[Rfam]
RNA: Ribosomal protein L10 leader
RNA sequence: UGUUUGAAAUGAAUACAGCCGUAGACAGCAGGUCCCUUUGGGAUAAAAUUUUUAUAAUAGAUUGCCUGCCGAGGAAGUUCUUUUAUAAAUAGAGAUUACAGCCUCUUUCGUCUGCGUGCAAAAGAGGCUUUUUUUACGGCCAU
Numbered sequence: 001u002g003u004u005u006g007a008a009a010u011g012a013a014u015a016c017a018g019c020c021g022u023a024g025a026c027a028g029c030a031g032g033u034c035c036c037u038u039u040g041g042g043a044u045a046a047a048a049u050u051u052u053u054a055u056a057a058u059a060g061a062u063u064g065c066c067u068g069c070c071g072a073g074g075a076a077g078u079u080c081u082u083u084u085a086u087a088a089a090u091a092g093a094g095a096u097u098a099c100a101g102c103c104u105c106u107u108u109c110g111u112c113u114g115c116g117u118g119c120a121a122a123a124g125a126g127g128c129u130u131u132u133u134u135u136a137c138g139g140c141c142a143u
Stems, first nucleotide, its partner, number of pairs: 028069006034042003101128008110119001